[Rfam]
RNA sequence: GAAUAAUAGAAAUAUAUUUUUCGUAUAAACUAAUAAUAAGGAUUAGUGUAUCUACCAGAAACCGUAAAUUUCUGAUUACGAAGAAGGUCUAUUUAUUG
Numbered sequence: 001g002a003a004u005a006a007u008a009g010a011a012a013u014a015u016a017u018u019u020u021u022c023g024u025a026u027a028a029a030c031u032a033a034u035a036a037u038a039a040g041g042a043u044u045a046g047u048g049u050a051u052c053u054a055c056c057a058g059a060a061a062c063c064g065u066a067a068a069u070u071u072c073u074g075a076u077u078a079c080g081a082a083g084a085a086g087g088u089c090u091a092u093u094u095a096u097u098g
Stems, first nucleotide, its partner, number of pairs: 018084008029047006056074006

Rfam assigns this 98-nucleotide sequence from Romboutsia weinsteinii to the family "Purine riboswitch aptamer". NCBI's taxonomy places the organism under Bacteria, Bacillati, Bacillota, Peptostreptococcales, Romboutsia. It scores 73 bits against the family's covariance model.